[Rfam]
RNA sequence: GGCUGGAAGCUUUCGAUUAGGGGCCUGCCCCUGGGAAGGUCUGAGAUGAGACGUCUAGCCGAAAGGGCACUUGGUUAAUGCCAAGGGUCGUCCACAACAGAAACACUCACUUCCCCCAUGACCGGAACGGGAUGACUGGGGGGAGUUUGGAAAUUGGACGAUGUCUUAGACUCGAAUAGUCCAACUCGAAAGGCAGCCGUGUUCCAUGCUGUAACCAGAUUCAGACUACUCUCCAGCAGCC
Numbered sequence: 001g002g003c004u005g006g007a008a009g010c011u012u013u014c015g016a017u018u019a020g021g022g023g024c025c026u027g028c029c030c031c032u033g034g035g036a037a038g039g040u041c042u043g044a045g046a047u048g049a050g051a052c053g054u055c056u057a058g059c060c061g062a063a064a065g066g067g068c069a070c071u072u073g074g075u076u077a078a079u080g081c082c083a084a085g086g087g088u089c090g091u092c093c094a095c096a097a098c099a100g101a102a103a104c105a106c107u108c109a110c111u112u113c114c115c116c117c118a119u120g121a122c123c124g125g126a127a128c129g130g131g132a133u134g135a136c137u138g139g140g141g142g143g144a145g146u147u148u149g150g151a152a153a154u155u156g157g158a159c160g161a162u163g164u165c166u167u168a169g170a171c172u173c174g175a176a177u178a179g180u181c182c183a184a185c186u187c188g189a190a191a192g193g194c195a196g197c198c199g200u201g202u203u204c205c206a207u208g209c210u211g212u213a214a215c216c217a218g219a220u221u222c223a224g225a226c227u228a229c230u231c232u233c234c235a236g237c238a239g240c241c
Base pairs, nucleotide, nucleotide: 001241002240003239004238005234006233007232010192011191012190013189014188015187016186019032020031021030022029023028041224042223043222044221045220050165051164052163053162056069059066060065070085071084072083073082074081075080088161089160090159091158092157093156094155109146110145111144193212194211195210196209197208199207200206
RNA: Nuclear RNase P
Organism: Encephalitozoon cuniculi